[Rfam]
RNA sequence: UUUUCAAUGAUGACGAGAUGUCCAUAAAUCAAACAACUGAGGGGAUAUUUCUGAUGUUGGAAAG
Numbered sequence: 001u002u003u004u005c006a007a008u009g010a011u012g013a014c015g016a017g018a019u020g021u022c023c024a025u026a027a028a029u030c031a032a033a034c035a036a037c038u039g040a041g042g043g044g045a046u047a048u049u050u051c052u053g054a055u056g057u058u059g060g061a062a063a064g
Stems, first nucleotide, its partner, number of pairs: 001064005015051009030039002
RNA: Selenocysteine insertion sequence 1